A member of the RNA family "SAM riboswitch aptamer (S box leader)" from Pelotomaculum propionicicum, 103 nucleotides long. The organism belongs to Pelotomaculum, within Bacteria.

RNA sequence: UUCUUAUCCAGAGAGGGGGAGGGACGGACCCGAUGAACCUUCGGCAACCUCAAGCACUACUUGAAAGGUGCCAAUUUCCUCCGGAAUGCCGGAAAGAUAAGAA
Numbered sequence: 001u002u003c004u005u006a007u008c009c010a011g012a013g014a015g016g017g018g019g020a021g022g023g024a025c026g027g028a029c030c031c032g033a034u035g036a037a038c039c040u041u042c043g044g045c046a047a048c049c050u051c052a053a054g055c056a057c058u059a060c061u062u063g064a065a066a067g068g069u070g071c072c073a074a075u076u077u078c079c080u081c082c083g084g085a086a087u088g089c090c091g092g093a094a095a096g097a098u099a100a101g102a103a
Base pairs, nucleotide, nucleotide: 001103002102003101004100005099006098007097008096013042014041015040016039017038021031022030023029026079027078028077043072044071045070046069048068049067050064051063052062053061076095081092082091083090084089